[Rfam]
RNA: mir-23 microRNA precursor family
RNA sequence: GGAAUUCCUGGUAGAGUGAUUUUUAAGACUAAAGACUGAAUCACAUUGCCAGGGAUUUCCA
Numbered sequence: 001g002g003a004a005u006u007c008c009u010g011g012u013a014g015a016g017u018g019a020u021u022u023u024u025a026a027g028a029c030u031a032a033a034g035a036c037u038g039a040a041u042c043a044c045a046u047u048g049c050c051a052g053g054g055a056u057u058u059c060c061a
Stems, first nucleotide, its partner, number of pairs: 002060001004056011016044007